[Rfam]
Nucleotides: 107
Base pairs, nucleotide, nucleotide: 008103009102010101011100012099013098014097015096017092018091019090020089021088022086023085024083025082
Number, partner (000 for none) and nucleotide at each position: 001000g002000c003000a004000a005000a006000a007000a008103u009102g010101g011100g012099c013098a014097g015096u016000c017092c018091u019090g020089u021088a022086c023085g024083g025082c026000c027000a028000g029000c030000u031000c032000c033000c034000u035000c036000g037000g038000a039000a040000u041000c042000c043000c044000c045000c046000a047000g048000g049000a050000u051000g052000g053000g054000a055000a056000c057000a058000u059000a060000g061000c062000a063000a064000g065000g066000g067000u068000a069000c070000u071000u072000g073000g074000u075000u076000g077000u078000a079000g080000c081000g082025g083024c084000g085023c086022g087000a088021u089020a090019u091018a092017g093000a094000u095000c096015g097014c098013u099012g100011c101010c102009c103008a104000c105000c106000c107000g
This 107-nucleotide RNA from Prevotellaceae bacterium HUN156 belongs to the Rfam family "Bacteroidales small SRP". Gene Ontology terms of the family: signal recognition particle, plasma membrane targeting and SRP-dependent cotranslational protein targeting to membrane, signal sequence recognition. The base pairs follow the family's consensus structure, which is taken from published work. The family's RNA type in Rfam is non-coding RNA gene.